Overview: Rfam assigns this 89-nucleotide RNA sequence from Alteribacillus persepolensis to the family "pan motif". Pairs were carried over by alignment from the consensus structure, which is taken from published work. Rfam classes the family as a cis-regulatory element. A search with the family's covariance model found it, with a score of 68 bits.
[Rfam]
RNA sequence: CAGGCAAUAUCUCUUUCGAAUUGCACUGUGUAUACAUUAAAAAACAAAUAAACAAUCUGCCUUGAUCCAAUCUGGACAGGGACGGAGGC
Numbered sequence: 001c002a003g004g005c006a007a008u009a010u011c012u013c014u015u016u017c018g019a020a021u022u023g024c025a026c027u028g029u030g031u032a033u034a035c036a037u038u039a040a041a042a043a044a045c046a047a048a049u050a051a052a053c054a055a056u057c058u059g060c061c062u063u064g065a066u067c068c069a070a071u072c073u074g075g076a077c078a079g080g081g082a083c084g085g086a087g088g089c
Stems, first nucleotide, its partner, number of pairs: 001028003004024005010019002057085003060081005066076003